[Rfam]
RNA sequence: GUGCGGGAUAGGGUCGCUCCUGAAAACCGGCUUCCAUCGCCGGCUUCCCGCACUUCCUUUUUUCGAUGG
Numbered sequence: 001g002u003g004c005g006g007g008a009u010a011g012g013g014u015c016g017c018u019c020c021u022g023a024a025a026a027c028c029g030g031c032u033u034c035c036a037u038c039g040c041c042g043g044c045u046u047c048c049c050g051c052a053c054u055u056c057c058u059u060u061u062u063u064c065g066a067u068g069g
Stems, first nucleotide, its partner, number of pairs: 001053008011021003027043005034069005

Shown here is a 69-nucleotide sequence from Fuerstiella marisgermanici, a member of the family "int-alpA RNA". Rfam classes the family as a small RNA. Rfam's curators write: Acidobacteria (1 example), Planctomycetes (1 example), Proteobacteria. It scores 43 bits against the family's covariance model. The family's consensus secondary structure is taken from published work.